[Rfam]
RNA sequence: UCGCAUCCUCGUUAGGCGAGGCGUCUAUGUGAACACAGGCCGCUGCCCGGAAACGUCGAAAGACGCCAAUGGGUAAAACAGGUAUUGCCGGAUUAAGGCUUUACUGAACGUGGCUGAGUGACCGACUCUACGUCGCAUAGUGCUGAAGCUCAACCAGGGGGACUGGC
Numbered sequence: 001u002c003g004c005a006u007c008c009u010c011g012u013u014a015g016g017c018g019a020g021g022c023g024u025c026u027a028u029g030u031g032a033a034c035a036c037a038g039g040c041c042g043c044u045g046c047c048c049g050g051a052a053a054c055g056u057c058g059a060a061a062g063a064c065g066c067c068a069a070u071g072g073g074u075a076a077a078a079c080a081g082g083u084a085u086u087g088c089c090g091g092a093u094u095a096a097g098g099c100u101u102u103a104c105u106g107a108a109c110g111u112g113g114c115u116g117a118g119u120g121a122c123c124g125a126c127u128c129u130a131c132g133u134c135g136c137a138u139a140g141u142g143c144u145g146a147a148g149c150u151c152a153a154c155c156a157g158g159g160g161g162a163c164u165g166g167c
Base pairs, nucleotide, nucleotide: 006162007161008160009159010158011154012153013096015150016149017148020144021143022142025140026139027138028137029136030135031134032133039114040113041112042111043110045074046073047072048071049070054065055064056063057062081105082104083103084102087099088098089097116128117127118126

Rfam assigns this 167-nucleotide sequence from Alicyclobacillaceae bacterium I2511 to the family "M-box riboswitch aptamer (ykoK leader)". From the family's description: M-box riboswitch, also know as ykoK leader is described as a metaloregulatory RNA that sense divalent metals and function as a genetic control element of genes related to divalent metal transport in bacteria. It was first reported upstream of the B.subtilis ykoK gene and genes with related functions in other bacteria. Its family is annotated with regulation of gene expression and response to magnesium ion in the Gene Ontology. For this family Rfam cites "Structure and mechanism of a metal-sensing regulatory RNA" (Dann CE 3rd et al., Cell, 2007). Lineage of the source: Bacteria > Bacillati > Bacillota > Caryophanales > Alicyclobacillaceae. The match comes from Rfam's covariance-model search (147 bits).